[Rfam]
RNA sequence: ACGGAAGCACGGGAGGCCAAGAGCGAAUCGGAAGAGAAGAUUCGAUCUCCCGCCCGCGUUUCCCAGCACGGACACCGAGUACCCACGCGGAGCCGAUGCCACUAUAAGGGCAGAAGCGUUGUGGGCCUGCGAGUUCCGAGUUCUCGAAGGCAAGACCCCCGCACCCGUUGCGGGGAGCGAACCGCCGACACCCGGAUCAUCGCCGAGGCCGUUGACACACAACCCACACCAGCACGCUUGGUAACCCGGAAGUUCCGUGCUAGCGGGUGGCGCACCGAUCACGAUCGGCGUGCCACCCGCUUUUGACU
Numbered sequence: 001a002c003g004g005a006a007g008c009a010c011g012g013g014a015g016g017c018c019a020a021g022a023g024c025g026a027a028u029c030g031g032a033a034g035a036g037a038a039g040a041u042u043c044g045a046u047c048u049c050c051c052g053c054c055c056g057c058g059u060u061u062c063c064c065a066g067c068a069c070g071g072a073c074a075c076c077g078a079g080u081a082c083c084c085a086c087g088c089g090g091a092g093c094c095g096a097u098g099c100c101a102c103u104a105u106a107a108g109g110g111c112a113g114a115a116g117c118g119u120u121g122u123g124g125g126c127c128u129g130c131g132a133g134u135u136c137c138g139a140g141u142u143c144u145c146g147a148a149g150g151c152a153a154g155a156c157c158c159c160c161g162c163a164c165c166c167g168u169u170g171c172g173g174g175g176a177g178c179g180a181a182c183c184g185c186c187g188a189c190a191c192c193c194g195g196a197u198c199a200u201c202g203c204c205g206a207g208g209c210c211g212u213u214g215a216c217a218c219a220c221a222a223c224c225c226a227c228a229c230c231a232g233c234a235c236g237c238u239u240g241g242u243a244a245c246c247c248g249g250a251a252g253u254u255c256c257g258u259g260c261u262a263g264c265g266g267g268u269g270g271c272g273c274a275c276c277g278a279u280c281a282c283g284a285u286c287g288g289c290g291u292g293c294c295a296c297c298c299g300c301u302u303u304u305g306a307c308u
Base pairs, nucleotide, nucleotide: 003063004062006060007059008058010056011055012054015051016050020048021047024044025043026042027041028040029039065261066260067259068258069257070256071255072254075249076248077247079245080244083241084240085239087237088236089235092233093232097112098111099110100109118223119222120221121220122219123218124210125209126208127207128206129203130202131201132200135196136195137194138193140191144188145187146186149183150182151179156177157175158174159173160172161171162170263300264299265298266297267296268295269294270293271292272291273290275288276287277286
Shown here is a 308-nucleotide RNA sequence from Rhodococcus sp. SMB37, a member of the family "Mycobacterium smegmatis small RNA 1". On this family, see Hnilicova et al., Nucleic Acids Res 2014: "Ms1, a novel sRNA interacting with the RNA polymerase core in mycobacteria". Mycobacterium smegmatis small RNA 1 is highly expressed during stationary phase of growth. Ms1 RNA directly interacts with RNA polymerase (RNAP), but in a different way than 6S, which is present in other bacteria. Ms1 does not require the presence of the main sigma factor for RNAP interaction. There is evidence that Ms1 RNA may function similar to 6S RNA in M. smegmatis which does not have 6S RNA.